[Rfam]
Shown here is a 231-nucleotide RNA from Cytobacillus kochii, a member of the family "T-box leader". It is annotated as a cis-regulatory leader. NCBI's taxonomy places the organism under Bacteria, Bacillati, Bacilli, Bacillaceae, Cytobacillus. Rfam describes the family as follows. Uncharged tRNA acts as the effector for transcription antitermination of genes in the T-box leader family. The match comes from Rfam's covariance-model search (132 bits).
RNA sequence: AUAACUGCAAUGAUGAGGAAUAGUAAUGCUAGGAAGCCUGAUAUUAGAGAGCUAGCGGUUGGUGUAAGCUAGUCAGCUCCUUUCAUGAACUCACCUACUGAGCAGCAAGUGUGAAAAUGACAGUAAUGCUUGCCGUACUCCGCGUUAAGGAUGAAUGAAGUGAACAGUUAACCGUAAACUGUUAAUGUGGGUGGUACCGCGGGAGAUAUACAUAAUCCUCUCGUCCCUUUU
Numbered sequence: 001a002u003a004a005c006u007g008c009a010a011u012g013a014u015g016a017g018g019a020a021u022a023g024u025a026a027u028g029c030u031a032g033g034a035a036g037c038c039u040g041a042u043a044u045u046a047g048a049g050a051g052c053u054a055g056c057g058g059u060u061g062g063u064g065u066a067a068g069c070u071a072g073u074c075a076g077c078u079c080c081u082u083u084c085a086u087g088a089a090c091u092c093a094c095c096u097a098c099u100g101a102g103c104a105g106c107a108a109g110u111g112u113g114a115a116a117a118u119g120a121c122a123g124u125a126a127u128g129c130u131u132g133c134c135g136u137a138c139u140c141c142g143c144g145u146u147a148a149g150g151a152u153g154a155a156u157g158a159a160g161u162g163a164a165c166a167g168u169u170a171a172c173c174g175u176a177a178a179c180u181g182u183u184a185a186u187g188u189g190g191g192u193g194g195u196a197c198c199g200c201g202g203g204a205g206a207u208a209u210a211c212a213u214a215a216u217c218c219u220c221u222c223g224u225c226c227c228u229u230u231u
Stems, first nucleotide, its partner, number of pairs: 007103002015098001016096003026086003031081001038076003051073006106132007134144003163183007189227003199224007